Description
This 74-nucleotide RNA sequence from Myxococcus xanthus belongs to the Rfam family "SAH (S-adenosyl-L-homocysteine) riboswitch aptamer". The family's consensus secondary structure is taken from published work.
[Rfam]
RNA sequence: GACUUCGAGGAGCGCUGCGAGGCCGGACCCGGCCCCAGGCUCGAAGCGGAAUCACCCAACGGCGCUCACCUGUA
Numbered sequence: 001g002a003c004u005u006c007g008a009g010g011a012g013c014g015c016u017g018c019g020a021g022g023c024c025g026g027a028c029c030c031g032g033c034c035c036c037a038g039g040c041u042c043g044a045a046g047c048g049g050a051a052u053c054a055c056c057c058a059a060c061g062g063c064g065c066u067c068a069c070c071u072g073u074a
Stems, first nucleotide, its partner, number of pairs: 003046006021034005